Rfam assigns this 347-nucleotide RNA from Hydrogenoanaerobacterium saccharovorans to the family "Bacterial RNase P class A". It scores 270 bits against the family's covariance model. The organism belongs to Hydrogenoanaerobacterium, within Bacteria. Rfam classes the family as a ribozyme.
[Rfam]
RNA sequence: CGAGCAAGCAAGACGGCAGCGUGCGUUAUCGAAAGGUAACGUAUGAGGAAAGUCCGGGCUCCUCAGGGCAAGAAUAGCUGCUAACGGCAGCCGGAGGCGACUCUAGGGAAAGUGCAACAGAGAUAUACCGCCGCGUAAGCGGUAAGGGUGGAAAGGCGAGGUAAGAGCUCACCGGCGCACAGGAGACUGUGCGGCCAUGUAAACCCUAUUCGGAGCAACACCGUGUAAAGAGGACGAAUACGCAGCCCUGCGCGUCCUUGAUAGAGGUGGCUGGAGGUGGUUGGCGACGACCAUCGUAGAUAGAUUGCUGUCAAAUACAGAACCCGGCUUAAAUGCUUGGUCGCAUU
Numbered sequence: 001c002g003a004g005c006a007a008g009c010a011a012g013a014c015g016g017c018a019g020c021g022u023g024c025g026u027u028a029u030c031g032a033a034a035g036g037u038a039a040c041g042u043a044u045g046a047g048g049a050a051a052g053u054c055c056g057g058g059c060u061c062c063u064c065a066g067g068g069c070a071a072g073a074a075u076a077g078c079u080g081c082u083a084a085c086g087g088c089a090g091c092c093g094g095a096g097g098c099g100a101c102u103c104u105a106g107g108g109a110a111a112g113u114g115c116a117a118c119a120g121a122g123a124u125a126u127a128c129c130g131c132c133g134c135g136u137a138a139g140c141g142g143u144a145a146g147g148g149u150g151g152a153a154a155g156g157c158g159a160g161g162u163a164a165g166a167g168c169u170c171a172c173c174g175g176c177g178c179a180c181a182g183g184a185g186a187c188u189g190u191g192c193g194g195c196c197a198u199g200u201a202a203a204c205c206c207u208a209u210u211c212g213g214a215g216c217a218a219c220a221c222c223g224u225g226u227a228a229a230g231a232g233g234a235c236g237a238a239u240a241c242g243c244a245g246c247c248c249u250g251c252g253c254g255u256c257c258u259u260g261a262u263a264g265a266g267g268u269g270g271c272u273g274g275a276g277g278u279g280g281u282u283g284g285c286g287a288c289g290a291c292c293a294u295c296g297u298a299g300a301u302a303g304a305u306u307g308c309u310g311u312c313a314a315a316u317a318c319a320g321a322a323c324c325c326g327g328c329u330u331a332a333a334u335g336c337u338u339g340g341u342c343g344c345a346u347u
Base pairs, nucleotide, nucleotide: 001343002342003341005339006338007337008336009335010334012312013311014310015309016308017307018306020045021044022043023042024041025040026039027038028037050330051329052328054327055326056325057324058323059215060214061213062212067247068246072211073210074209075208076207077091078090079089080088081087092106093104094103095102096101107206108205112204113203114200115199116198128147129146130143131142132141133140134139155173156172158170159169160168175195176193177192178191179190180189181188182187219269220268221267222266231258232257233256234255235254236253241252242251243250244249276295277294278293279292280291281290282289283288
Dot-bracket structure: (((.((((((.(((((((.(((((((((........)))))))))....[[[.[[[[[((((....[[...((((((((((.....)))))(((((....)))).)((...(((((...........(((((((....)))))..)).......((.(((.......))).)).((((((((....))))))).)..)))..)))))))))))))...((((........((((((....((((.]].)))))))))).......))))......((((((((....))))))))..........)))))))..........]]]]]]]]...)))))).)))....